[Rfam]
Nucleotides: 387
Stems, first nucleotide, its partner, number of pairs: 004387003007383001008335007016045011050381003054378003058374001059249005064081006087244005092113006114134001115132006135239002138178004146169004153163003185237002187233003202221008253269003273302007304319005337366011
Number, partner (000 for none) and nucleotide at each position: 001000a002000g003000u004387c005386u006385c007383a008335g009334g010333u011332a012331a013330u014329c015000g016045c017044g018043g019042u020041u021040u022039a023038u024037a025036u026035u027000u028000u029000u030000u031000c032000g033000a034000a035026a036025a037024u038023a039022u040021a041020g042019g043018c044017u045016g046000a047000g048000g049000a050381a051380a052379g053000u054378c055377c056376a057000a058374g059249c060248u061247u062246g063245c064081a065080c066079a067078g068077g069076c070000u071000g072000a073000g074000a075000u076069g077068c078067u079066u080065g081064u082000a083000g084000u085000g086000a087244u088243c089242g090241u091240a092113c093112u094111u095110g096109c097108u098000g099000a100000a101000a102000a103000a104000a105000u106000a107000a108097g109096g110095c111094a112093a113092g114134a115132u116131a117130c118129c119128u120127u121000u122000g123000u124000a125000c126000a127120a128119a129118g130117g131116u132115a133000a134114u135239g136238g137000c138178a139177g140176a141175u142000a143000a144000a145000a146169g147168a148167g149166c150000u151000a152000a153163g154162g155161c156000u157000a158000a159000a160000a161155g162154c163153u164000a165000u166149g167148c168147u169146c170000g171000a172000g173000u174000a175141g176140u177139c178138u179000u180000g181000a182000a183000a184000a185237g186236u187233g188232c189231c190000a191000c192000a193000g194000u195000g196000a197000c198000g199000a200000a201000g202221c203220a204219a205218u206217u207216u208215a209214g210000g211000a212000a213000a214209c215208u216207g217206a218205a219204u220203u221202g222000g223000u224000g225000g226000a227000a228000c229000g230000c231189g232188g233187u234000a235000a236186a237185c238136c239135c240091u241090g242089c243088g244087a245063g246062c247061a248060g249059g250000u251000a252000a253269c254268c255267c256000a257000a258000a259000c260000u261000u262000u263000g264000g265000u266000a267255g268254g269253g270000g271000c272000g273302c274301u275300u276299c277298a278297u279296g280000a281000c282000g283000g284000a285000a286000a287000u288000g289000a290000a291000c292000u293000a294000a295000u296279c297278a298277u299276g300275g301274g302273g303000g304319c305318g306317a307316a308315u309000a310000u311000u312000u313000a314000u315308a316307u317306u318305c319304g320000g321000a322000g323000a324000u325000a326000g327000a328000u329014g330013a331012u332011u333010a334009c335008c336000a337366c338365g339364u340363a341362a342361u343360u344359a345358a346357a347356c348000g349000a350000a351000c352000c353000u354000g355000g356347g357346u358345u359344u360343a361342g362341u363340u364339a365338c366337g367000g368000a369000c370000a371000g372000a373000a374058c375000g376056u377055g378054g379052c380051u381050u382000a383007u384000c385006g386005a387004g
A member of the RNA family "Bacterial RNase P class B" from Ligilactobacillus ceti, 387 nucleotides long. Ribonuclease P (RNase P) is a ubiquitous endoribonuclease, found in archaea, bacteria and eukarya as well as chloroplasts and mitochondria. Its best characterised activity is the generation of mature 5'-ends of tRNAs by cleaving the 5'-leader elements of precursor-tRNAs. Cellular RNase Ps are ribonucleoproteins. RNA from bacterial RNase Ps retains its catalytic activity in the absence of the protein subunit, i.e. it is a ribozyme. Isolated eukaryotic and archaeal RNase P RNA has not been shown to retain its catalytic function, but is still essential for the catalytic activity of the holoenzyme. Although the archaeal and eukaryotic holoenzyme s have a much greater protein content than the bacterial ones, the RNA cores from all the three lineages are homologous -- helices corresponding to P1, P2, P3, P4, and P10/11 are common to all cellular RNase P RNAs. Yet, there is considerable sequence variation, particularly among the eukaryotic RNAs. Taxonomically the source falls in Ligilactobacillus ceti (Bacteria, Bacillati, Bacilli, Lactobacillales). A reference for the family is Frank and Pace (1998), "Ribonuclease P: unity and diversity in a tRNA processing ribozyme", Annu Rev Biochem.